This 204-nucleotide RNA from Pontibacter diazotrophicus belongs to the Rfam family "Group II catalytic intron D1-D4-3".
NCBI's taxonomy places the organism under Bacteria, Pseudomonadati, Cytophagia, Hymenobacteraceae, Pontibacter.
The pairing is the family consensus, mapped onto this sequence.
It scores 61 bits against the family's covariance model.
RNA sequence: UUUGGGGUGACCGAUGCACUGAAGAAAGCGGGACUGCAAAAGCCUGAACUGACGAAUACUCUUGAGCACGGGAGUGCGAAAAGAGCGCACGUAGUGCUGCAUAAGAGGCAGGGAGUCGUGGGUAAGCAAGCACAUCUUUGCAAAGCCCCUGACCAACAAACGACUUUGUGUAGAUGCAGCAGGGUUAGGUGGAAGGAUAAGUGU
Numbered sequence: 001u002u003u004g005g006g007g008u009g010a011c012c013g014a015u016g017c018a019c020u021g022a023a024g025a026a027a028g029c030g031g032g033a034c035u036g037c038a039a040a041a042g043c044c045u046g047a048a049c050u051g052a053c054g055a056a057u058a059c060u061c062u063u064g065a066g067c068a069c070g071g072g073a074g075u076g077c078g079a080a081a082a083g084a085g086c087g088c089a090c091g092u093a094g095u096g097c098u099g100c101a102u103a104a105g106a107g108g109c110a111g112g113g114a115g116u117c118g119u120g121g122g123u124a125a126g127c128a129a130g131c132a133c134a135u136c137u138u139u140g141c142a143a144a145g146c147c148c149c150u151g152a153c154c155a156a157c158a159a160a161c162g163a164c165u166u167u168g169u170g171u172a173g174a175u176g177c178a179g180c181a182g183g184g185u186u187a188g189g190u191g192g193a194a195g196g197a198u199a200a201g202u203g204u
Stems, first nucleotide, its partner, number of pairs: 001016001003014001005012002028204003037196001042190005049182003097179006108171003112167007120148004126141004